[Rfam]
RNA sequence: AGGUCAUUUCAAAAAGAGCUUGUUGGACCAAACCAGGAGCUCUUAAUGCUGUGACCAAAGAUUGAAGUUCUCCAUAUACUGUAAGUCACUCAUUAGUGCUGUUUUCCUCAGGAGAUACAAAA
Numbered sequence: 001a002g003g004u005c006a007u008u009u010c011a012a013a014a015a016g017a018g019c020u021u022g023u024u025g026g027a028c029c030a031a032a033c034c035a036g037g038a039g040c041u042c043u044u045a046a047u048g049c050u051g052u053g054a055c056c057a058a059a060g061a062u063u064g065a066a067g068u069u070c071u072c073c074a075u076a077u078a079c080u081g082u083a084a085g086u087c088a089c090u091c092a093u094u095a096g097u098g099c100u101g102u103u104u105u106c107c108u109c110a111g112g113a114g115a116u117a118c119a120a121a122a
Base pairs, nucleotide, nucleotide: 002056003055004054005053006052007051014044015043016042017041018040019039020038021037023036026034069115070114071113072112073111076108084100085099087098088097089096090095
Dot-bracket structure: .((((((......((((((((.(..(.......).)))))))))......))))))............(((((..(.......((.((((....)))))).......)..))))).......

The family of this 122-nucleotide RNA from Hipposideros armiger is "Small nucleolar RNA SNORA25". The match comes from Rfam's covariance-model search (102 bits). The base pairs follow the family's consensus structure, which was predicted with RNAfold. ACA25 is a member of the H/ACA class of snoRNA that guide the sites of modification of uridines to pseudouridines. Rfam classes the family as an H/ACA-box small nucleolar RNA.